[Rfam]
RNA sequence: GCAUCCCGUGCGGGAGAGCCUCCGGCCGACCCGUCCACCUCGGUGGGCGAGCCGGUGCAGGAGCGCCGAAGGGGCAAUUCCUCCCCGGAACCUCUCAGGCGCCAGGACCGCACGGGCAGG
Numbered sequence: 001g002c003a004u005c006c007c008g009u010g011c012g013g014g015a016g017a018g019c020c021u022c023c024g025g026c027c028g029a030c031c032c033g034u035c036c037a038c039c040u041c042g043g044u045g046g047g048c049g050a051g052c053c054g055g056u057g058c059a060g061g062a063g064c065g066c067c068g069a070a071g072g073g074g075c076a077a078u079u080c081c082u083c084c085c086c087g088g089a090a091c092c093u094c095u096c097a098g099g100c101g102c103c104a105g106g107a108c109c110g111c112a113c114g115g116g117c118a119g120g
Stems, first nucleotide, its partner, number of pairs: 006115008020063004065100003068096002072094003078088002